[Rfam]
Shown here is a 218-nucleotide sequence from Capsella rubella, a member of the family "Plant small nucleolar RNA U3". It scores 117 bits against the family's covariance model. Rfam 15.1 lists 3,759 matches to the family in 258 species. Rfam's curators write: Small nucleolar RNAs (snoRNAs) are involved in the processing and modification of rRNA in the nucleolus. There are two main classes of snoRNAs: the box C/D class, and the box H/ACA class. U3 snoRNA is a member of the box C/D class. Indeed, the box C/D element is a subset of the six short sequence elements found in all U3 snoRNAs, namely boxes A, A', B, C, C', and D. The U3 snoRNA secondary structure is characterised by a small 5' domain (with boxes A and A'), and a larger 3' domain (with boxes B, C, C', and D), the two domains being linked by a single-stranded hinge. Boxes B and C form the B/C motif, which appears to be exclusive to U3 snoRNAs, and boxes C' and D form the C'/D motif. The latter is functionally similar to the C/D motifs found in other snoRNAs. The 5' domain and the hinge region act as a pre-rRNA-binding domain. The 3' domain has conserved protein-binding sites. Both the box B/C and box C'/D motifs are sufficient for nuclear retention of U3 snoRNA. The box C'/D motif is also necessary for nucleolar localisation, stability and hyper-methylation of U3 snoRNA. Both box B/C and C'/D motifs are involved in specific protein interactions and are necessary for the rRNA processing functions of U3 snoRNA. Rfam links the family to the GO terms RNA processing and nucleolus. On this family, see Zwieb, Nucleic Acids Res 1997: "The uRNA database".
RNA sequence: ACGACCUUACUUGAACAUGAUACGUUCUAUAGCCUCGUGCUUCAUGUAUCUUUGAUUUUUGUGGAGAGAGGCUUUUAACCCUGGUUGAUGAACCAUGAUCGUGCGAUCAAAGCGUGAGCAACGGCCACGAUCGUUCUCGGACGCAUCCGAUGUUGUAGAGGCUUGAUACACGGUUUGAACCACCUUGUUGGGGUGGUCGCACGACGGUCUGACAUGUC
Numbered sequence: 001a002c003g004a005c006c007u008u009a010c011u012u013g014a015a016c017a018u019g020a021u022a023c024g025u026u027c028u029a030u031a032g033c034c035u036c037g038u039g040c041u042u043c044a045u046g047u048a049u050c051u052u053u054g055a056u057u058u059u060u061g062u063g064g065a066g067a068g069a070g071g072c073u074u075u076u077a078a079c080c081c082u083g084g085u086u087g088a089u090g091a092a093c094c095a096u097g098a099u100c101g102u103g104c105g106a107u108c109a110a111a112g113c114g115u116g117a118g119c120a121a122c123g124g125c126c127a128c129g130a131u132c133g134u135u136c137u138c139g140g141a142c143g144c145a146u147c148c149g150a151u152g153u154u155g156u157a158g159a160g161g162c163u164u165g166a167u168a169c170a171c172g173g174u175u176u177g178a179a180c181c182a183c184c185u186u187g188u189u190g191g192g193g194u195g196g197u198c199g200c201a202c203g204a205c206g207g208u209c210u211g212a213c214a215u216g217u218c
Base pairs, nucleotide, nucleotide: 001038002037003035006032007031013027014026015025016024018022043070045069047067049065050064051063053061054060080216082214083213099204100203101202102201103200104199105198106197107196108195109194111167113165114164121156122155123154124153125152128149129147130146131145132143133142134141135140168188169187170186172184173183174182